[Rfam]
RNA sequence: UUAUGUUAACCACAUAAAAUAUGUCAUCUCCUUUAAUUGUACACAUCAUCUUCAAUUGGAACAAGCCUGAGGUAUUCAACUUAUUGAGGCUUAUGUGUAUAACUAAAGGAGGUGUAACACCUCAAGCCUGUUCCAAUUGAGGUUGAUGUGUACAAUUAAAUGAGAUGAUAUAUUUUAUGUGGUUAACAUAAGU
Dot-bracket structure: (((((((((((((((((((((((((..(((.((((((((((((((((..((((((((((((((.................................................................))))))))))))))..)))))))))))))))).)))..)))))))))))))))))))))))))..
Numbered sequence: 001u002u003a004u005g006u007u008a009a010c011c012a013c014a015u016a017a018a019a020u021a022u023g024u025c026a027u028c029u030c031c032u033u034u035a036a037u038u039g040u041a042c043a044c045a046u047c048a049u050c051u052u053c054a055a056u057u058g059g060a061a062c063a064a065g066c067c068u069g070a071g072g073u074a075u076u077c078a079a080c081u082u083a084u085u086g087a088g089g090c091u092u093a094u095g096u097g098u099a100u101a102a103c104u105a106a107a108g109g110a111g112g113u114g115u116a117a118c119a120c121c122u123c124a125a126g127c128c129u130g131u132u133c134c135a136a137u138u139g140a141g142g143u144u145g146a147u148g149u150g151u152a153c154a155a156u157u158a159a160a161u162g163a164g165a166u167g168a169u170a171u172a173u174u175u176u177a178u179g180u181g182g183u184u185a186a187c188a189u190a191a192g193u
Stems, first nucleotide, its partner, number of pairs: 001191025028164003032160016050142014